Description: The record is an 82-nucleotide sequence from Pigmentiphaga aceris, which matches "SucA RNA motif" in Rfam. Rfam links the family to the GO term regulation of translation.
[Rfam]
RNA sequence: CUGCGAUCCGCUAUCCGGCUAAGCCGUGCCGCGGAAGGUCCAUCCUGCAUCUACCGGGUGAAACACCCGUCACGGUGAAGCG
Numbered sequence: 001c002u003g004c005g006a007u008c009c010g011c012u013a014u015c016c017g018g019c020u021a022a023g024c025c026g027u028g029c030c031g032c033g034g035a036a037g038g039u040c041c042a043u044c045c046u047g048c049a050u051c052u053a054c055c056g057g058g059u060g061a062a063a064c065a066c067c068c069g070u071c072a073c074g075g076u077g078a079a080g081c082g
Stems, first nucleotide, its partner, number of pairs: 002082003007035005016026004037045002048077004055069006

The match comes from Rfam's covariance-model search (49 bits).